[Rfam]
RNA: Small nucleolar RNA SNORD97
RNA sequence: GCGCCCUGUGAUUAUGAAAAGACGCGUUAUUCUGAGGGGGAAACCCCACUGCCAGUUCUCUCUGAAACCUAAAUCUUUUUUCAUCCCUUUUCUCAAUUCCCCCUCUUCUCUUUCCUCCCCUUCUUCUACUUCACCUCUGCUCUGGCAAUGGGUCCGCUGAACGUGAUUAUGAGAUAUGAGGGCAC
Numbered sequence: 001g002c003g004c005c006c007u008g009u010g011a012u013u014a015u016g017a018a019a020a021g022a023c024g025c026g027u028u029a030u031u032c033u034g035a036g037g038g039g040g041a042a043a044c045c046c047c048a049c050u051g052c053c054a055g056u057u058c059u060c061u062c063u064g065a066a067a068c069c070u071a072a073a074u075c076u077u078u079u080u081u082c083a084u085c086c087c088u089u090u091u092c093u094c095a096a097u098u099c100c101c102c103c104u105c106u107u108c109u110c111u112u113u114c115c116u117c118c119c120c121u122u123c124u125u126c127u128a129c130u131u132c133a134c135c136u137c138u139g140c141u142c143u144g145g146c147a148a149u150g151g152g153u154c155c156g157c158u159g160a161a162c163g164u165g166a167u168u169a170u171g172a173g174a175u176a177u178g179a180g181g182g183c184a185c
Stems, first nucleotide, its partner, number of pairs: 001185001003183004035104007